[Rfam]
RNA: TPP riboswitch aptamer (THI element)
Organism: Alkaliphilus metalliredigens
RNA sequence: AACAAUCACUAGGGGAGCUGGAGAGGCCAGCUGAGAAAAAGACCUACCUGUCUUUGACCCUUAUUCUGAACCUGAUCUGGGUUAUACCAGCGUAGGGAAGUGAUCGUCGCCACUU
Numbered sequence: 001a002a003c004a005a006u007c008a009c010u011a012g013g014g015g016a017g018c019u020g021g022a023g024a025g026g027c028c029a030g031c032u033g034a035g036a037a038a039a040a041g042a043c044c045u046a047c048c049u050g051u052c053u054u055u056g057a058c059c060c061u062u063a064u065u066c067u068g069a070a071c072c073u074g075a076u077c078u079g080g081g082u083u084a085u086a087c088c089a090g091c092g093u094a095g096g097g098a099a100g101u102g103a104u105c106g107u108c109g110c111c112a113c114u115u
Stems, first nucleotide, its partner, number of pairs: 006103005011061004016055001017031005039054004071096004077090004